[Rfam]
RNA sequence: AAAAAGCCCGCUUCGCGUCGGCAAAAGCGGGCUUCGUGUACGGGGUGCUACGAGAAAACGGCUUGGCGUCGGACGGCCUUUCGGCCCCGUUCGCUUUAGCUGUUUCGGGGGGCGCCCCGCGUCCGCAAGCUGAACUCAAAUCGACGCUGAGCCUGCAUCGUAACACGCCGGGGCGGC
Numbered sequence: 001a002a003a004a005a006g007c008c009c010g011c012u013u014c015g016c017g018u019c020g021g022c023a024a025a026a027g028c029g030g031g032c033u034u035c036g037u038g039u040a041c042g043g044g045g046u047g048c049u050a051c052g053a054g055a056a057a058a059c060g061g062c063u064u065g066g067c068g069u070c071g072g073a074c075g076g077c078c079u080u081u082c083g084g085c086c087c088c089g090u091u092c093g094c095u096u097u098a099g100c101u102g103u104u105u106c107g108g109g110g111g112g113c114g115c116c117c118c119g120c121g122u123c124c125g126c127a128a129g130c131u132g133a134a135c136u137c138a139a140a141u142c143g144a145c146g147c148u149g150a151g152c153c154u155g156c157a158u159c160g161u162a163a164c165a166c167g168c169c170g171g172g173g174c175g176g177c
Stems, first nucleotide, its partner, number of pairs: 004034009015022002039149002041146002053095002060091002065082002096133006107118003119126002

Notes: The family of this 177-nucleotide sequence from Trinickia caryophylli is "Burkholderia sRNA Bp2_Cand287_SIPHT". For this family Rfam cites "Computational discovery and RT-PCR validation of novel Burkholderia conserved and Burkholderia pseudomallei unique sRNAs" (Khoo et al., BMC Genomics, 2012). The family's RNA type in Rfam is small RNA. Lineage of the source: Bacteria > Pseudomonadati > Pseudomonadota > Burkholderiaceae > Trinickia.